RNA sequence: AACCACACUAUCAAUGAAUGAAUUUACUCGUGAUAUGACGUGGCUCUUCCACUUAGGAAGAGAACGUGGCAUCCUAUUAUCAACCAUCGCACGAAAUUAAUAGGACGCCACGUCUUCAUCCUAGUGGAACAACCACAUCAUCUCAUAGGUAGAUCUAUUCAUUAAUAAUGUAGUU
Numbered sequence: 001a002a003c004c005a006c007a008c009u010a011u012c013a014a015u016g017a018a019u020g021a022a023u024u025u026a027c028u029c030g031u032g033a034u035a036u037g038a039c040g041u042g043g044c045u046c047u048u049c050c051a052c053u054u055a056g057g058a059a060g061a062g063a064a065c066g067u068g069g070c071a072u073c074c075u076a077u078u079a080u081c082a083a084c085c086a087u088c089g090c091a092c093g094a095a096a097u098u099a100a101u102a103g104g105a106c107g108c109c110a111c112g113u114c115u116u117c118a119u120c121c122u123a124g125u126g127g128a129a130c131a132a133c134c135a136c137a138u139c140a141u142c143u144c145a146u147a148g149g150u151a152g153a154u155c156u157a158u159u160c161a162u163u164a165a166u167a168a169u170g171u172a173g174u175u
Stems, first nucleotide, its partner, number of pairs: 001175003005171003009167003013163003017159003022154007030146004035141004041135003045131001047129002051125002054123002057120002064113002069108002072105008086097002
The family of this 175-nucleotide RNA from Oryza meridionalis is "MIR807 microRNA precursor family". Gene Ontology terms of the family: RISC complex and miRNA-mediated post-transcriptional gene silencing. The organism belongs to Oryza, within Eukaryota.